[Rfam]
RNA sequence: CUACUUACCUGGCAGGGGAGAUACAUGAUCAGAAGGUGGUUCACCCAGGGCGCAGGCUAACCAUUGCACUCGGUUAUGCUGACCCUGCGAAUUCCCCAAAUGUGGGAAUCUCGACAUGCAUAAUUUGUGGUAGGGGGGACUGCGUUCGCGCUCUCCCUG
Dot-bracket structure: ...........(((((((.((.((((.........))).))).)))((((...((..(((((.........)))))..))..)))).((((((.((.......)).))).))).).)))...............(((((..(((....)))..))))).
Numbered sequence: 001c002u003a004c005u006u007a008c009c010u011g012g013c014a015g016g017g018g019a020g021a022u023a024c025a026u027g028a029u030c031a032g033a034a035g036g037u038g039g040u041u042c043a044c045c046c047a048g049g050g051c052g053c054a055g056g057c058u059a060a061c062c063a064u065u066g067c068a069c070u071c072g073g074u075u076a077u078g079c080u081g082a083c084c085c086u087g088c089g090a091a092u093u094c095c096c097c098a099a100a101u102g103u104g105g106g107a108a109u110c111u112c113g114a115c116a117u118g119c120a121u122a123a124u125u126u127g128u129g130g131u132a133g134g135g136g137g138g139a140c141u142g143c144g145u146u147c148g149c150g151c152u153c154u155c156c157c158u159g
Stems, first nucleotide, its partner, number of pairs: 012119003015115001016046003020042002023040001024038003047086004054080002058076005088113003091109003095105002135158005142151003

The record is a 159-nucleotide sequence from Etheostoma spectabile, which matches "U1 spliceosomal RNA" in Rfam. The family's consensus secondary structure is taken from published work. U1 is a small nuclear RNA (snRNA) component of the spliceosome (involved in pre-mRNA splicing). Its 5' end forms complementary base pairs with the 5' splice junction, thus defining the 5' donor site of an intron. It is annotated as a spliceosomal small nuclear RNA. A reference for the family is Zwieb (1997), "The uRNA database", Nucleic Acids Res.